[Rfam]
RNA sequence: GCAGCCCCAUGAUGGCUGGAUCCGAAAUCCUCGAUGGGUCCAGCUUGAUGUCUUUGCAGC
Numbered sequence: 001g002c003a004g005c006c007c008c009a010u011g012a013u014g015g016c017u018g019g020a021u022c023c024g025a026a027a028u029c030c031u032c033g034a035u036g037g038g039u040c041c042a043g044c045u046u047g048a049u050g051u052c053u054u055u056g057c058a059g060c
Stems, first nucleotide, its partner, number of pairs: 001060002004057002014045010027035003

Shown here is a 60-nucleotide RNA sequence from Callithrix jacchus, a member of the family "Selenocysteine insertion sequence 1". The literature on the family includes a 1996 paper in RNA by Walczak et al., "A novel RNA structural motif in the selenocysteine insertion element of eukaryotic selenoprotein mRNAs". Rfam 15.1 lists 3,793 matches to the family in 721 species. The family's RNA type in Rfam is cis-regulatory element. Pairs were carried over by alignment from the consensus structure, which is taken from published work. NCBI's taxonomy places the organism under Eukaryota, Metazoa, Mammalia, Platyrrhini, Callithrix.